Rfam assigns this 77-nucleotide RNA sequence to the family "Makes More Granules Regulator RNA (mmgR)".
[Rfam]
RNA sequence: GGAACGGGCCUUUCAGGCAUCCUCUCCUAAUGACUUACGGGCUGGUUCCAACGAACCGGCCCGUUUUUUUGUGCCCG
Numbered sequence: 001g002g003a004a005c006g007g008g009c010c011u012u013u014c015a016g017g018c019a020u021c022c023u024c025u026c027c028u029a030a031u032g033a034c035u036u037a038c039g040g041g042c043u044g045g046u047u048c049c050a051a052c053g054a055a056c057c058g059g060c061c062c063g064u065u066u067u068u069u070u071g072u073g074c075c076c077g
Base pairs, nucleotide, nucleotide: 008018009017010016011015039062040061041060042059043058044057045056046055047054
SuhB later renamed mmgR (makes more granules regulator) was a putative non-coding RNA found multiple times in the Agrobacterium tumefaciens genome and related alpha-proteobacteria.